[Rfam]
RNA sequence: AACGACCGGUCGGACACGCGUGCCACUCAGCAGGCGGGCCCGGCCCACAAGUGGAGGCUCCGAACUCCCACCCGACCACCCCCAGGGCGGCGGGUCACCCGGUCAGGCGACCACCAUCGUUCCGUACGGACGAUGGAGUCGCCCGGUAGUGCGCCCCGCGAUCCUCGCGACGGUGCUCCGGUAGUGCUUGGAGCCCCGCAUGUGAUCGUUCGGGGCAUUUUUU
Numbered sequence: 001a002a003c004g005a006c007c008g009g010u011c012g013g014a015c016a017c018g019c020g021u022g023c024c025a026c027u028c029a030g031c032a033g034g035c036g037g038g039c040c041c042g043g044c045c046c047a048c049a050a051g052u053g054g055a056g057g058c059u060c061c062g063a064a065c066u067c068c069c070a071c072c073c074g075a076c077c078a079c080c081c082c083c084a085g086g087g088c089g090g091c092g093g094g095u096c097a098c099c100c101g102g103u104c105a106g107g108c109g110a111c112c113a114c115c116a117u118c119g120u121u122c123c124g125u126a127c128g129g130a131c132g133a134u135g136g137a138g139u140c141g142c143c144c145g146g147u148a149g150u151g152c153g154c155c156c157c158g159c160g161a162u163c164c165u166c167g168c169g170a171c172g173g174u175g176c177u178c179c180g181g182u183a184g185u186g187c188u189u190g191g192a193g194c195c196c197c198g199c200a201u202g203u204g205a206u207c208g209u210u211c212g213g214g215g216c217a218u219u220u221u222u223u
Stems, first nucleotide, its partner, number of pairs: 004104006012041002042096005048074001051071004055066002076090002079087003106143005114136008153216006159208003166204003171198003175194005
Rfam assigns this 223-nucleotide sequence from Streptomyces phaeofaciens to the family "Streptomyces RNA 1601".
Rfam describes the family as follows. Identified by deep sequencing of transcriptome at the end of exponential growth phase. Appears longer on northern blot than sequencing transcript. Streptomyces specific.
NCBI's taxonomy places the organism under Bacteria, Bacillati, Actinomycetota, Streptomycetaceae, Streptomyces.
It is annotated as a small RNA.